Rfam assigns this 81-nucleotide RNA from Myotis davidii to the family "mir-574 microRNA precursor family". The base pairs follow the family's consensus structure, which was predicted with RNAalifold. Its Rfam clan is "mir-574 microRNA precursor clan". A reference for the family is Lui et al. (2007), "Patterns of known and novel small RNAs in human cervical cancer", Cancer Res. The organism belongs to Myotis, within Eukaryota.
[Rfam]
RNA sequence: AGGCUGGGAGAAAAAGGCAGGGUCUGAUCCACAGCCUCAGUGACAGCUGUUGAUCAGCCAUUGCCUCUUUCUUUCUCUCUG
Numbered sequence: 001a002g003g004c005u006g007g008g009a010g011a012a013a014a015a016g017g018c019a020g021g022g023u024c025u026g027a028u029c030c031a032c033a034g035c036c037u038c039a040g041u042g043a044c045a046g047c048u049g050u051u052g053a054u055c056a057g058c059c060a061u062u063g064c065c066u067c068u069u070u071c072u073u074u075c076u077c078u079c080u081g
Stems, first nucleotide, its partner, number of pairs: 008073006015066006022059001024057006032049004

Rfam links the family to the GO terms miRNA-mediated post-transcriptional gene silencing and RISC complex. The match comes from Rfam's covariance-model search (90 bits).